[Rfam]
RNA: Group II catalytic intron D1-D4-4
Organism: Candidatus Propionivibrio aalborgensis
RNA sequence: CAGUGGGUGAAAACCCCACCCGGCGAAAUGCUCCAGCCGGAAGCAACCGGAGCAGUCAUGGAGGUAACGAAAUGGCUGAAGCCUUCGGAUAGCUGUCACAAGAUGUGGUGAUGGCGCGAGUGUGCAGGCCGUAACGCGA
Number, nucleotide and partner (000 for none) at each position: 001c000002a000003g000004u000005g000006g000007g000008u000009g000010a000011a000012a000013a000014c000015c000016c000017c000018a000019c000020c040021c039022g038023g037024c036025g000026a000027a000028a000029u000030g000031c000032u000033c000034c000035a000036g024037c023038c022039g021040g020041a000042a000043g000044c000045a000046a000047c000048c087049g086050g085051a084052g083053c078054a077055g076056u075057c074058a073059u000060g000061g000062a000063g068064g000065u000066a000067a000068c063069g000070a000071a000072a000073u058074g057075g056076c055077u054078g053079a000080a000081g000082c000083c052084u051085u050086c049087g048088g000089a000090u000091a000092g000093c000094u113095g112096u111097c110098a109099c108100a000101a000102g000103a000104u000105g000106u000107g000108g099109u098110g097111a096112u095113g094114g000115c000116g132117c131118g130119a000120g000121u000122g000123u000124g000125c000126a000127g000128g000129c000130c118131g117132u116133a000134a000135c000136g000137c000138g000139a000